[Rfam]
Nucleotides: 163
Stems, first nucleotide, its partner, number of pairs: 012121004018044001020042001022041005048089004053085001055082003059078004091116003094112003098108002137162006145154003
Number, partner (000 for none) and nucleotide at each position: 001000a002000u003000a004000c005000u006000u007000a008000c009000c010000u011000a012121g013120u014119g015118g016000u017000a018044a019000u020042a021000u022041a023040c024039c025038a026037u027000g028000a029000u030000c031000a032000c033000g034000a035000a036000u037026g038025u039024g040023g041022u042020u043000u044018u045000c046000c047000u048089g049088g050087g051086g052000c053085g054000a055082g056081g057080c058000u059078u060077a061076u062075c063000c064000g065000u066000u067000g068000c069000a070000c071000u072000c073000c074000a075062g076061a077060u078059g079000u080057g081056c082055u083000g084000a085053c086051u087050c088049c089048u090000g091116c092115g093114a094112u095111u096110u097000c098108c099107c100000c101000a102000a103000u104000u105000g106000u107099g108098g109000g110096a111095a112094a113000c114093u115092u116091g117000a118015c119014u120013g121012c122000a123000u124000a125000a126000u127000u128000u129000g130000u131000g132000g133000u134000a135000g136000u137162g138161g139160g140159g141158g142157a143000c144000u145154g146153c147152g148000u149000u150000c151000a152147u153146g154145c155000u156000c157142u158141c159140c160139c161138u162137u163000a
This 163-nucleotide RNA from Carlito syrichta belongs to the Rfam family "U1 spliceosomal RNA". A search with the family's covariance model found it, with a score of 115 bits. The family's RNA type in Rfam is spliceosomal small nuclear RNA. Pairs were carried over by alignment from the consensus structure, which is taken from published work.